[Rfam]
RNA sequence: ACCAAACACCGGAUCUGUGUCCAGAUUUCCUGUCCACGGACUCCAGUCUGACUGGUUUCUGUGUGACGGUUGAGAGCUGGGCAUUUCGACGAGCUUGGAGCCAUCAUUUUCGUGGAUGGCCUUUACGGUUUCCGGUCGACAGAUCUCAGAAUAAGUGUCUGCGCCUUGUGAUGCGGGUCUUGAGCUCCCACUGGUGAGCUCGGCUUGACAGCUUGGUGUCGGACGGCGUCAUAUUUCAUAUCUCUUUGCCGAUUGGCCGUUGGCCGCUGAGGUUAGGGAAUAACCAUGACUUGCCAACAUAU
Numbered sequence: 001a002c003c004a005a006a007c008a009c010c011g012g013a014u015c016u017g018u019g020u021c022c023a024g025a026u027u028u029c030c031u032g033u034c035c036a037c038g039g040a041c042u043c044c045a046g047u048c049u050g051a052c053u054g055g056u057u058u059c060u061g062u063g064u065g066a067c068g069g070u071u072g073a074g075a076g077c078u079g080g081g082c083a084u085u086u087c088g089a090c091g092a093g094c095u096u097g098g099a100g101c102c103a104u105c106a107u108u109u110u111c112g113u114g115g116a117u118g119g120c121c122u123u124u125a126c127g128g129u130u131u132c133c134g135g136u137c138g139a140c141a142g143a144u145c146u147c148a149g150a151a152u153a154a155g156u157g158u159c160u161g162c163g164c165c166u167u168g169u170g171a172u173g174c175g176g177g178u179c180u181u182g183a184g185c186u187c188c189c190a191c192u193g194g195u196g197a198g199c200u201c202g203g204c205u206u207g208a209c210a211g212c213u214u215g216g217u218g219u220c221g222g223a224c225g226g227c228g229u230c231a232u233a234u235u236u237c238a239u240a241u242c243u244c245u246u247u248g249c250c251g252a253u254u255g256g257c258c259g260u261u262g263g264c265c266g267c268u269g270a271g272g273u274u275a276g277g278g279a280a281u282a283a284c285c286a287u288g289a290c291u292u293g294c295c296a297a298c299a300u301a302u
Base pairs, nucleotide, nucleotide: 011146012145013144014143015142016141017140018139019082020081021080022079023078024077026075027074028073029072030069031068032067033066034065035063036062037061038060039059040058043055044054046052047051090138091137092136094134097123098122100120101119102118157220159218163217164216165215168212176205177204178203179202182201183200184199185198186197187196188194189193225295226294227293228290229289230288231287232286241279242278243277244276245275248273249272250271255265256264257263258262
Dot-bracket structure: ..........((((((((((((((.(((((((((((((((..((.((...)).))..)))))).)))))..)))).)))))).......(((.(..((.(((...............))).))..........).)))))))))))..........(.(...(((..(.......((((..((((((((...)).))))))))))......)..)))).)....((((((((........(((((..(((....((((...)))).....))).)))))......)))))..))).......
A. fumigatus sRNA Afu_309: a 302-nucleotide RNA from Penicillium rubens. The base pairs follow the family's consensus structure, which was predicted with WAR. By type it is a small RNA. The literature on the family includes a 2008 paper in Nucleic Acids Res by Jochl et al., "Small ncRNA transcriptome analysis from Aspergillus fumigatus suggests a novel mechanism for regulation of protein synthesis".